[Rfam]
RNA sequence: AAACUUACCUGGCGCCGAGUUCAGGGUGAUCAGCAAGGCUCCGACCCCAGGUGGAGGCUCAGCAUUGCACUCCGCUGUGUUCCGCUGUGUUGAAGCCUGCGACAGACUCUAAUCGGAUUCCCUCGGGGCCAUAGUUUUUACCAGUGGGGAGUUCUCAGACAUUCCUUU
Dot-bracket structure: ...........(..(.(.(((..((((..........)))).))).).((((...(((.((((....................)))).)))...)))).(((.((.((......)).))...))).)..)...............((((((((....)))..))))).
The record is a 168-nucleotide RNA from Taenia asiatica, which matches "U1 spliceosomal RNA" in Rfam.
The source organism's lineage runs through Eukaryota, Metazoa, Protostomia, Eucestoda and Taenia.
Rfam's curators write: U1 is a small nuclear RNA (snRNA) component of the spliceosome (involved in pre-mRNA splicing).
Pairs were carried over by alignment from the consensus structure, which is taken from published work.
The family is grouped with related families in Rfam's "U1 clan".